[Rfam]
RNA sequence: GCUUCCGUGAGGAAGGGUCUGGAGGAAGCCAGCGGCAAACCUACAAGCUGACGGACAGAAACGUCAUAGAAGGCCGAGAUAGUCCUGGGGCGAGUUGGCACAACACAACAAAGCCCAUUGGUUCAGGGAACACGGUAAAUGACGCAGUUGUGUAGGGACAGUUCACGGU
Dot-bracket structure: .(((((....)))))............(((....((...(((((((((((...........((((((.....(((..(....(((..((((..((((........))))...))))..........))).)..)))..))))))))))).))))))....))....)))
This 169-nucleotide RNA sequence from Leptolyngbya sp. 'hensonii' belongs to the Rfam family "Group II catalytic intron D1-D4-3". About the family: Group II introns are found in rRNA, tRNA and mRNA of organelles in fungi, plants and protists, and also in mRNA in bacteria. The match comes from Rfam's covariance-model search (130 bits). The organism belongs to Leptolyngbya, within Bacteria.